Record summary:
The record is a 147-nucleotide sequence from Xaviernesmea oryzae, which matches "Alphaproteobacterial sRNA ar35" in Rfam. The family's RNA type in Rfam is small RNA. Pairs were carried over by alignment from the consensus structure. On this family, see del Val et al., RNA Biol 2012: "A survey of sRNA families in alpha-proteobacteria". The match comes from Rfam's covariance-model search (100 bits).
[Rfam]
RNA sequence: AUCGGCACUGCUGGUUGAGCGUCCCACUCAAAUUCGCGGAAGCUCGCGGAGCCGAUAUCGCUGAUGGCUUUUGACCACGGAUGUACUGGCAGGGGAUAGACAGCGAAUGAGGAAGGUCGGUGCGGUUUCGCCCCGGCCUUUUUUGUU
Numbered sequence: 001a002u003c004g005g006c007a008c009u010g011c012u013g014g015u016u017g018a019g020c021g022u023c024c025c026a027c028u029c030a031a032a033u034u035c036g037c038g039g040a041a042g043c044u045c046g047c048g049g050a051g052c053c054g055a056u057a058u059c060g061c062u063g064a065u066g067g068c069u070u071u072u073g074a075c076c077a078c079g080g081a082u083g084u085a086c087u088g089g090c091a092g093g094g095g096a097u098a099g100a101c102a103g104c105g106a107a108u109g110a111g112g113a114a115g116g117u118c119g120g121u122g123c124g125g126u127u128u129c130g131c132c133c134c135g136g137c138c139u140u141u142u143u144u145g146u147u
Stems, first nucleotide, its partner, number of pairs: 003054004008049002017045004058106006066097001068095002072091002075089003107146014122131003